[Rfam]
Shown here is an 80-nucleotide RNA sequence, a member of the family "IMES-4 RNA motif". The sequence is in the family's curated seed alignment. Rfam classes the family as a non-coding RNA gene. For this family Rfam cites "Exceptional structured noncoding RNAs revealed by bacterial metagenome analysis" (Weinberg et al., Nature, 2009). Pairs were carried over by alignment from the consensus structure, which is taken from published work.
RNA sequence: AUUAUUACACGCAAAGGUAAUAAUUAGAUAUUUUUUAGGAAACUGUUAAAUAUCUAUAUCGGGAGGAAAUGCACGAUAUA
Numbered sequence: 001a002u003u004a005u006u007a008c009a010c011g012c013a014a015a016g017g018u019a020a021u022a023a024u025u026a027g028a029u030a031u032u033u034u035u036u037a038g039g040a041a042a043c044u045g046u047u048a049a050a051u052a053u054c055u056a057u058a059u060c061g062g063g064a065g066g067a068a069a070u071g072c073a074c075g076a077u078a079u080a
Stems, first nucleotide, its partner, number of pairs: 001024008026055008036045003056079006